Rfam assigns this 103-nucleotide RNA from Gigaspora rosea to the family "mir-36 microRNA precursor family". The organism belongs to Gigaspora, within Eukaryota. Rfam links the family to the GO terms miRNA-mediated post-transcriptional gene silencing and RISC complex. For this family Rfam cites "Dynamic expression of small non-coding RNAs, including novel microRNAs and piRNAs/21U-RNAs, during Caenorhabditis elegans development" (Kato et al., Genome Biol, 2009). Clan: mir-36 clan.

[Rfam]
RNA sequence: AGGGAAAACCAGUAAGCCAUUUCACUCAUUAUCAUCGUGGUGAUAUGUACCAUAGGGGUAGAUAUCACCACGAUGAUAAUGAGUGAAAUGGCUUACUGGUUUU
Numbered sequence: 001a002g003g004g005a006a007a008a009c010c011a012g013u014a015a016g017c018c019a020u021u022u023c024a025c026u027c028a029u030u031a032u033c034a035u036c037g038u039g040g041u042g043a044u045a046u047g048u049a050c051c052a053u054a055g056g057g058g059u060a061g062a063u064a065u066c067a068c069c070a071c072g073a074u075g076a077u078a079a080u081g082a083g084u085g086a087a088a089u090g091g092c093u094u095a096c097u098g099g100u101u102u103u
Base pairs, nucleotide, nucleotide: 015093016092017091018090019089020088021087023085024084025083026082027081028080029079030078031077032076033075034074035073036072038070040068041067042066043065044064045063